[Rfam]
RNA sequence: ACGGGUAUUCUUGGGUGGAUAAUACGGCUCUCGUUGUUAUUGCUUAAGAAUACGCGUAG
Numbered sequence: 001a002c003g004g005g006u007a008u009u010c011u012u013g014g015g016u017g018g019a020u021a022a023u024a025c026g027g028c029u030c031u032c033g034u035u036g037u038u039a040u041u042g043c044u045u046a047a048g049a050a051u052a053c054g055c056g057u058a059g
Stems, first nucleotide, its partner, number of pairs: 001057003005053012018041007025033002
Shown here is a 59-nucleotide RNA from Ictalurus punctatus, a member of the family "mir-137 microRNA precursor family". Its family is annotated with miRNA-mediated post-transcriptional gene silencing and RISC complex in the Gene Ontology. The organism belongs to Ictalurus, within Eukaryota. It is one of the family's seed sequences.